[Rfam]
RNA sequence: ACUGUGGAGUGUAGAAGACCUGUGAGUAGAGAUAACCUUGGUUACUCAAAAACAUACACGUUGAAACAGUAA
Numbered sequence: 001a002c003u004g005u006g007g008a009g010u011g012u013a014g015a016a017g018a019c020c021u022g023u024g025a026g027u028a029g030a031g032a033u034a035a036c037c038u039u040g041g042u043u044a045c046u047c048a049a050a051a052a053c054a055u056a057c058a059c060g061u062u063g064a065a066a067c068a069g070u071a072a
Base pairs, nucleotide, nucleotide: 001070002069003068004067005066009059010058011057012056013055021054022053023052029047030046031045033044034043035042036041